[Rfam]
RNA sequence: UAGUUUUGUCCUAAAUCAAACUUCUCUAACUUUGGCCGAGUUUAUAGAAAAAUGCACCAACAUCUACAAUAACAAAUAAAUGCACUAUCAAGAUAUAUUUCAUAGUGGAUUUAAUGAAACUAAUAUGAUGUUGUGUUGGUGCAUUUUUCUAUAAACUCUCGCAAUGUUAGGAUAGCUUGACUUAGGACAAAACUAA
Numbered sequence: 001u002a003g004u005u006u007u008g009u010c011c012u013a014a015a016u017c018a019a020a021c022u023u024c025u026c027u028a029a030c031u032u033u034g035g036c037c038g039a040g041u042u043u044a045u046a047g048a049a050a051a052a053u054g055c056a057c058c059a060a061c062a063u064c065u066a067c068a069a070u071a072a073c074a075a076a077u078a079a080a081u082g083c084a085c086u087a088u089c090a091a092g093a094u095a096u097a098u099u100u101c102a103u104a105g106u107g108g109a110u111u112u113a114a115u116g117a118a119a120c121u122a123a124u125a126u127g128a129u130g131u132u133g134u135g136u137u138g139g140u141g142c143a144u145u146u147u148u149c150u151a152u153a154a155a156c157u158c159u160c161g162c163a164a165u166g167u168u169a170g171g172a173u174a175g176c177u178u179g180a181c182u183u184a185g186g187a188c189a190a191a192a193c194u195a196a
Stems, first nucleotide, its partner, number of pairs: 005191005011185004016180004021175002025171002031164001033163001035162002045151008055141003059137004067133002073127002076124002
RNA: MIR1435 microRNA precursor family